[Rfam]
A member of the RNA family "U4 spliceosomal RNA" from Naumovozyma castellii, 211 nucleotides long. Rfam's curators put it in the seed alignment. By type it is a spliceosomal small nuclear RNA. The literature on the family includes a 2018 paper in Science by Bai et al., "Structures of the fully assembled Saccharomyces cerevisiae spliceosome before activation".

RNA sequence: AUCCUUAUGCAAGGGAAAUACGCAUAUCAGUGAGGAUUCGUCCGAGAUUGUGUUUUUGCUGGUUGAAAUUUAAUUAAACCAGACCUGCUCCUCAUUGUCGCCAGUUAGAUGUUCGCUUCAUGAACAUCUCAGAUAAUGUAGGGAAUUUUUGGAAUACUUUUAUUUUCUAAUCAUGAAUUUUCCCAUCAAGAUAACCGAUGAGAGAAGGAGU
Numbered sequence: 001a002u003c004c005u006u007a008u009g010c011a012a013g014g015g016a017a018a019u020a021c022g023c024a025u026a027u028c029a030g031u032g033a034g035g036a037u038u039c040g041u042c043c044g045a046g047a048u049u050g051u052g053u054u055u056u057u058g059c060u061g062g063u064u065g066a067a068a069u070u071u072a073a074u075u076a077a078a079c080c081a082g083a084c085c086u087g088c089u090c091c092u093c094a095u096u097g098u099c100g101c102c103a104g105u106u107a108g109a110u111g112u113u114c115g116c117u118u119c120a121u122g123a124a125c126a127u128c129u130c131a132g133a134u135a136a137u138g139u140a141g142g143g144a145a146u147u148u149u150u151g152g153a154a155u156a157c158u159u160u161u162a163u164u165u166u167c168u169a170a171u172c173a174u175g176a177a178u179u180u181u182c183c184c185a186u187c188a189a190g191a192u193a194a195c196c197g198a199u200g201a202g203a204g205a206a207g208g209a210g211u
Base pairs, nucleotide, nucleotide: 020053021052022051023050024049026048027047028046034043035042036041089143090142091141093138094137095136096135097134098133099132156211157210158209159208160207161206